Shown here is a 152-nucleotide sequence from Sulfitobacter sp. JL08, a member of the family "FMN riboswitch aptamer (RFN element)". The base pairs follow the family's consensus structure, which is taken from published work. NCBI's taxonomy places the organism under Bacteria, Pseudomonadota, Alphaproteobacteria, Rhodobacterales, Sulfitobacter. A search with the family's covariance model found it, with a score of 111 bits.
[Rfam]
RNA sequence: CCGGGUUCUCAGGGCGGGGCGAAAUUCCCCACCGGCGGUAUGUGGUGAACACCACGAGCCCGCGAGCGCUUUGACCCCUUGCGGUUCAAAGGUCAGCAGAUCUGGUGCGAUGCCAGAGCCGACGGUCAUAGUCCGGAUGAGAGAGAACGGUU
Numbered sequence: 001c002c003g004g005g006u007u008c009u010c011a012g013g014g015c016g017g018g019g020c021g022a023a024a025u026u027c028c029c030c031a032c033c034g035g036c037g038g039u040a041u042g043u044g045g046u047g048a049a050c051a052c053c054a055c056g057a058g059c060c061c062g063c064g065a066g067c068g069c070u071u072u073g074a075c076c077c078c079u080u081g082c083g084g085u086u087c088a089a090a091g092g093u094c095a096g097c098a099g100a101u102c103u104g105g106u107g108c109g110a111u112g113c114c115a116g117a118g119c120c121g122a123c124g125g126u127c128a129u130a131g132u133c134c135g136g137a138u139g140a141g142a143g144a145g146a147a148c149g150g151u152u
Stems, first nucleotide, its partner, number of pairs: 005148006017029003031132002033121002035063004058119002066097002101117005123135003